[Rfam]
RNA sequence: AAAAGCAGGGACCUGUUGCCUUCUGUGAAUGGGUCUCUCGUAUAAGCCAGGGAAAUAAAUUUGCAUUGUUAUUGGGUGAACCUCUGGAGUCCUUUGUGGACAAGGAUAGAUGGUUCAGUAAAUGAUGUUACAUGU
Numbered sequence: 001a002a003a004a005g006c007a008g009g010g011a012c013c014u015g016u017u018g019c020c021u022u023c024u025g026u027g028a029a030u031g032g033g034u035c036u037c038u039c040g041u042a043u044a045a046g047c048c049a050g051g052g053a054a055a056u057a058a059a060u061u062u063g064c065a066u067u068g069u070u071a072u073u074g075g076g077u078g079a080a081c082c083u084c085u086g087g088a089g090u091c092c093u094u095u096g097u098g099g100a101c102a103a104g105g106a107u108a109g110a111u112g113g114u115u116c117a118g119u120a121a122a123u124g125a126u127g128u129u130a131c132a133u134g135u
Stems, first nucleotide, its partner, number of pairs: 005047001009036002012033004064127007077117006

This 135-nucleotide sequence from Ipomoea nil belongs to the Rfam family "Small nucleolar RNA snoR74". A search with the family's covariance model found it, with a score of 88 bits. The literature on the family includes a 2002 paper in Curr Biol by Marker et al., "Experimental RNomics: identification of 140 candidates for small non-messenger RNAs in the plant Arabidopsis thaliana". The base pairs follow the family's consensus structure, which was predicted with WAR.